A member of the RNA family "Small nucleolar RNA SNORA22" from Jaculus jaculus, 130 nucleotides long. The match comes from Rfam's covariance-model search (96 bits). Taxonomically the source falls in Jaculus (Eukaryota, Opisthokonta, Eumetazoa, Chordata). ACA22 is a member of the H/ACA class of snoRNA that guide the sites of modification of uridines to pseudouridines.

[Rfam]
RNA sequence: UUGCACAGAGAACACCCAAGUGUGCUUUAUAGUUCCCUUGGUCCUGACUCUGCUAGAGUAAUGUAUGUCUGUUUCCUCUGCAUUAAAAGUACUGUAUCCUUUUAAAUGUAUUAAAAAUAUCUAGACAUCA
Numbered sequence: 001u002u003g004c005a006c007a008g009a010g011a012a013c014a015c016c017c018a019a020g021u022g023u024g025c026u027u028u029a030u031a032g033u034u035c036c037c038u039u040g041g042u043c044c045u046g047a048c049u050c051u052g053c054u055a056g057a058g059u060a061a062u063g064u065a066u067g068u069c070u071g072u073u074u075c076c077u078c079u080g081c082a083u084u085a086a087a088a089g090u091a092c093u094g095u096a097u098c099c100u101u102u103u104a105a106a107u108g109u110a111u112u113a114a115a116a117a118u119a120u121c122u123a124g125a126c127a128u129c130a
Stems, first nucleotide, its partner, number of pairs: 003053002007051002010049001013046002016041005022035001024033003056070001058068003077116001079114001081108004085103005091097001